[Rfam]
RNA sequence: CUGGGCUACGGAGACAUGUACCCUCAGACGACUUCGGGAAUGCUGGUCGGAGCCCUGUGUGCCCUGGCGGGCGUGCUCACCAUCGCCAUGCCGGUCCCUGUCAUUGUCAACAAC
Numbered sequence: 001c002u003g004g005g006c007u008a009c010g011g012a013g014a015c016a017u018g019u020a021c022c023c024u025c026a027g028a029c030g031a032c033u034u035c036g037g038g039a040a041u042g043c044u045g046g047u048c049g050g051a052g053c054c055c056u057g058u059g060u061g062c063c064c065u066g067g068c069g070g071g072c073g074u075g076c077u078c079a080c081c082a083u084c085g086c087c088a089u090g091c092c093g094g095u096c097c098c099u100g101u102c103a104u105u106g107u108c109a110a111c112a113a114c
Base pairs, nucleotide, nucleotide: 002113004111008107009106010105011104013102014101015100016099018097020095021094037077038076040074049063050062
The family of this 114-nucleotide RNA from Cynoglossus semilaevis is "Potassium channel RNA editing signal".
A search with the family's covariance model found it, with a score of 98 bits.
The family's consensus secondary structure is taken from published work.
This family represents a group of sequences related to the human potassium channel Kv1.1 hairpin element which directs the efficient modification of an adenosine to inosine by an adenosine deaminase acting on RNA (ADAR). The ADAR modification causes an isoleucine/valine recoding event which lies in the ion-conducting pore of the potassium channel. It is thought that this editing event targets the process of fast inactivation and allows a more rapid recovery from inactivation at negative potentials.
On this family, see Bhalla et al., Nat Struct Mol Biol 2004: "Control of human potassium channel inactivation by editing of a small mRNA hairpin".